[Rfam]
RNA sequence: GUCACAGGUGGUGGGGCGCCACGAGCGCUCCGCCGAAAUGCGCAAUACCUAGACGAAUAACGGUAGACAAG
Numbered sequence: 001g002u003c004a005c006a007g008g009u010g011g012u013g014g015g016g017c018g019c020c021a022c023g024a025g026c027g028c029u030c031c032g033c034c035g036a037a038a039u040g041c042g043c044a045a046u047a048c049c050u051a052g053a054c055g056a057a058u059a060a061c062g063g064u065a066g067a068c069a070a071g
Stems, first nucleotide, its partner, number of pairs: 009035006016028004